A member of the RNA family "NiCo (Nickel/Cobalt) riboswitch aptamer" from Anaerotruncus massiliensis, 107 nucleotides long. The match comes from Rfam's covariance-model search (68 bits). Gene Ontology terms of the family: metal ion homeostasis and cobalt ion binding. The family's consensus secondary structure is taken from published work. For this family Rfam cites "Bacterial riboswitches cooperatively bind Ni(2+) or Co(2+) ions and control expression of heavy metal transporters" (Furukawa et al., Mol Cell, 2015). The source organism's lineage runs through Bacteria, Clostridia, Eubacteriales, Oscillospiraceae and Anaerotruncus.
RNA sequence: ACAGUACAAACUGAGCAGGCGAUGUCCCUAGUCCGGAAGGGCGUGGGACCGGGCCGCCCUGUGGCGGCAGCGGGUGGAGUUUUCAUCGACACAUCCGCAGGACAGUA
Numbered sequence: 001a002c003a004g005u006a007c008a009a010a011c012u013g014a015g016c017a018g019g020c021g022a023u024g025u026c027c028c029u030a031g032u033c034c035g036g037a038a039g040g041g042c043g044u045g046g047g048a049c050c051g052g053g054c055c056g057c058c059c060u061g062u063g064g065c066g067g068c069a070g071c072g073g074g075u076g077g078a079g080u081u082u083u084c085a086u087c088g089a090c091a092c093a094u095c096c097g098c099a100g101g102a103c104a105g106u107a
Stems, first nucleotide, its partner, number of pairs: 010106004016101001018050002022044006053068005070098006